[Rfam]
RNA: mir-72 microRNA precursor family
RNA sequence: AUGAGGCAAGAUGUUGGCAUAGCUGAGUUAUUAUUUAAAUCUUCAGCAAUGCUACAUAUGGCCAUGUC
Numbered sequence: 001a002u003g004a005g006g007c008a009a010g011a012u013g014u015u016g017g018c019a020u021a022g023c024u025g026a027g028u029u030a031u032u033a034u035u036u037a038a039a040u041c042u043u044c045a046g047c048a049a050u051g052c053u054a055c056a057u058a059u060g061g062c063c064a065u066g067u068c
Stems, first nucleotide, its partner, number of pairs: 005063003011057004016053003022047005